[Rfam]
RNA sequence: CACGUCAGCGCGCUAUGCUGACGUGGACACAUAUUGCGUUCUGCAGGCCGCGCUUUGUUGCCACGUCAGCAAAGCGCGCUGACGUGG
Numbered sequence: 001c002a003c004g005u006c007a008g009c010g011c012g013c014u015a016u017g018c019u020g021a022c023g024u025g026g027a028c029a030c031a032u033a034u035u036g037c038g039u040u041c042u043g044c045a046g047g048c049c050g051c052g053c054u055u056u057g058u059u060g061c062c063a064c065g066u067c068a069g070c071a072a073a074g075c076g077c078g079c080u081g082a083c084g085u086g087g
Base pairs, nucleotide, nucleotide: 001086002085003084004083005082006081007080008079009078010077011076012075013074014073016071017070018069019068020067021066023064024063025062026061029058030057031056033054035052036051037050038049040047041046